The record is an 81-nucleotide sequence, which matches "pemK RNA" in Rfam. It is one of the family's seed sequences.
RNA sequence: GUAAAGAUACUUCCGUCCGGUCACAGUUCACACAAUGAGGGCGGCAGGCAGAGAACCUGGCUGGGGUAAAAAUACCCAUGA
Numbered sequence: 001g002u003a004a005a006g007a008u009a010c011u012u013c014c015g016u017c018c019g020g021u022c023a024c025a026g027u028u029c030a031c032a033c034a035a036u037g038a039g040g041g042c043g044g045c046a047g048g049c050a051g052a053g054a055a056c057c058u059g060g061c062u063g064g065g066g067u068a069a070a071a072a073u074a075c076c077c078a079u080g081a
Stems, first nucleotide, its partner, number of pairs: 012078001013044006045063003049059003064077003